[Rfam]
RNA sequence: GGUCAGCUGUGAUGAAUUUCAUGUUGUCUGUGUUUCACCUGAUUACCCUGAUUACACACAUGUUCUGAGCAGACC
Numbered sequence: 001g002g003u004c005a006g007c008u009g010u011g012a013u014g015a016a017u018u019u020c021a022u023g024u025u026g027u028c029u030g031u032g033u034u035u036c037a038c039c040u041g042a043u044u045a046c047c048c049u050g051a052u053u054a055c056a057c058a059c060a061u062g063u064u065c066u067g068a069g070c071a072g073a074c075c
Stems, first nucleotide, its partner, number of pairs: 001075004006070002

Small nucleolar RNA SNORD126: a 75-nucleotide RNA from Sphenodon punctatus. The match comes from Rfam's covariance-model search (71 bits).